[Rfam]
RNA sequence: GCAUCCGUCACGGGAGAAUCGGCCUUGCCGAUGCCGAAGGAGCAACCGCCCCGGAAACUCUCAGGCCGCAGGACCGCGACGGGACC
Numbered sequence: 001g002c003a004u005c006c007g008u009c010a011c012g013g014g015a016g017a018a019u020c021g022g023c024c025u026u027g028c029c030g031a032u033g034c035c036g037a038a039g040g041a042g043c044a045a046c047c048g049c050c051c052c053g054g055a056a057a058c059u060c061u062c063a064g065g066c067c068g069c070a071g072g073a074c075c076g077c078g079a080c081g082g083g084a085c086c
Base pairs, nucleotide, nucleotide: 006081007080008079009078011076012075013074019031020030021029022028033066034065035064036062037061040060041059042058046054047053
Rfam assigns this 86-nucleotide sequence from Sulfitobacter sp. HI0023 to the family "Glycine riboswitch aptamer". A search with the family's covariance model found it, with a score of 57 bits. Its family is annotated with glycine biosynthetic process in the Gene Ontology.